[Rfam]
RNA sequence: CAAAAUGCGCGCGUCCUAGGGGAGUAGUCUCCCGCGAGCGCCAGCUCGCCCGGCACGCGUCAACAUACUUGCUCAGCAGAGCAUGGCGCGUGCGAUCCAAGGCCCACUGAGGUGGCCUUACGGUUUGACCAGACCUAUGACACGCACACCUUACCCGGGGCGGGGAGGCUGUACGUGUCAUAGCCAUGUCGACCCGCCCCUUUAGGAAC
Numbered sequence: 001c002a003a004a005a006u007g008c009g010c011g012c013g014u015c016c017u018a019g020g021g022g023a024g025u026a027g028u029c030u031c032c033c034g035c036g037a038g039c040g041c042c043a044g045c046u047c048g049c050c051c052g053g054c055a056c057g058c059g060u061c062a063a064c065a066u067a068c069u070u071g072c073u074c075a076g077c078a079g080a081g082c083a084u085g086g087c088g089c090g091u092g093c094g095a096u097c098c099a100a101g102g103c104c105c106a107c108u109g110a111g112g113u114g115g116c117c118u119u120a121c122g123g124u125u126u127g128a129c130c131a132g133a134c135c136u137a138u139g140a141c142a143c144g145c146a147c148a149c150c151u152u153a154c155c156c157g158g159g160g161c162g163g164g165g166a167g168g169c170u171g172u173a174c175g176u177g178u179c180a181u182a183g184c185c186a187u188g189u190c191g192a193c194c195c196g197c198c199c200c201u202u203u204a205g206g207a208a209c
Base pairs, nucleotide, nucleotide: 032052053093054092055091056090057089058088059087060086061085062084070083071082072081073080074079094209096207097206098205100203101202102201
RNA: Manganese Mn2+ riboswitch aptamer (yybP-ykoY)
Organism: Pseudomonas guineae